Shown here is a 70-nucleotide RNA from Phytophthora aleatoria, a member of the family "tRNA".
It scores 47 bits against the family's covariance model.
Taxonomically the source falls in Phytophthora (Eukaryota, Sar, Stramenopiles, Peronosporomycetes).
Nucleotides: 070
Stems, first nucleotide, its partner, number of pairs: 001069005010024004027041004048064005
Number, partner (000 for none) and nucleotide at each position: 001069g002068c003067c004066c005065g006000u007000a008000u009000a010024g011023c012022u013021c014000a015000g016000u017000g018000g019000u020000c021013g022012a023011g024010c025000a026000c027041u028040c029039g030038c031000u032000u033000c034000g035000u036000a037000a038030g039029c040028g041027a042000c043000a044000g045000g046000u047000c048064g049063g050062u051061g052060g053000u054000u055000c056000a057000a058000u059000c060052c061051c062050a063049c064048c065005c066004g067003g068002g069001c070000a